[Rfam]
RNA sequence: GGAUCGAUGAUGACACCCCAAUUACAUUCCUUGGAGCUGAACAGAAUGAGUGAAGACUCUUAAACCGUCUCUCUCAUCGUGACUGAGGUCC
Numbered sequence: 001g002g003a004u005c006g007a008u009g010a011u012g013a014c015a016c017c018c019c020a021a022u023u024a025c026a027u028u029c030c031u032u033g034g035a036g037c038u039g040a041a042c043a044g045a046a047u048g049a050g051u052g053a054a055g056a057c058u059c060u061u062a063a064a065c066c067g068u069c070u071c072u073c074u075c076a077u078c079g080u081g082a083c084u085g086a087g088g089u090c091c
Stems, first nucleotide, its partner, number of pairs: 001091005025052005031044003
RNA: Small nucleolar RNA SNORD116